[Rfam]
RNA sequence: AAUGCAUCAAUGAUGAGUAAUCCAAUUCGUUAUCCUUGCACUUUGAUUGUUAAAUGAAGAAAAUCAUGGGGAAAUAUAAUCUGAGAUGCUU
Dot-bracket structure: .(.(((((............................................................................))))).)
Rfam assigns this 91-nucleotide RNA sequence from Solanum commersonii to the family "Small nucleolar RNA snoR26".
Rfam 15.1 lists 611 matches to the family in 220 species.
Gene Ontology terms of the family: nucleolus and RNA processing.
The base pairs follow the family's consensus structure, which was predicted with WAR.